[Rfam]
RNA sequence: GGGUGCUGCGCCGCGAGUGGCGCAUCAGGUCGUUCACGCAGGUCGGGCCGCCUCG
Numbered sequence: 001g002g003g004u005g006c007u008g009c010g011c012c013g014c015g016a017g018u019g020g021c022g023c024a025u026c027a028g029g030u031c032g033u034u035c036a037c038g039c040a041g042g043u044c045g046g047g048c049c050g051c052c053u054c055g
Stems, first nucleotide, its partner, number of pairs: 005026001007024006037055002040053004

A member of the RNA family "nhaA-I RNA" from Sphaerotilus hippei, 55 nucleotides long. The source organism's lineage runs through Bacteria, Betaproteobacteria, Burkholderiales, Sphaerotilaceae and Sphaerotilus. From the family's description: Acidobacteria, Alphaproteobacteria, Betaproteobacteria and Gammaproteobacteria, Verrucomicrobia, cand. division NC10.